[Rfam]
RNA sequence: AAUGCCUUUAAAUUGGUCCAGAGAGGCCGGUAAGGAUGAAAUCAGGAUAAGUAUAGAUAGUGUAUAUCUAUAUUUUGUUAUGGGUAUCGUACAGCCUUCUGCCUCUGGUAGAAGGCUUUUUGCUU
Number, nucleotide and partner (000 for none) at each position: 001a000002a000003u000004g000005c035006c034007u033008u032009u000010a000011a000012a000013u030014u029015g028016g027017u026018c025019c000020a000021g000022a000023g000024a000025g018026g017027c016028c015029g014030g013031u000032a008033a007034g006035g005036a000037u000038g000039a000040a000041a000042u000043c000044a000045g000046g078047a000048u000049a075050a074051g073052u072053a071054u070055a069056g068057a067058u066059a065060g000061u000062g000063u000064a000065u059066a058067u057068c056069u055070a054071u053072a052073u051074u050075u049076u000077g000078u046079u000080a000081u000082g000083g000084g000085u000086a000087u000088c000089g000090u000091a119092c000093a117094g116095c115096c114097u113098u112099c111100u110101g109102c108103c107104u000105c000106u000107g103108g102109u101110a100111g099112a098113a097114g096115g095116c094117u093118u000119u091120u000121u000122g000123c000124u000125u000
PyrR binding site: a 125-nucleotide sequence from Anaerosolibacter carboniphilus. Taxonomically the source falls in Anaerosolibacter (Bacteria, Bacillati, Peptostreptococcales, Thermotaleaceae). The family's RNA type in Rfam is cis-regulatory element.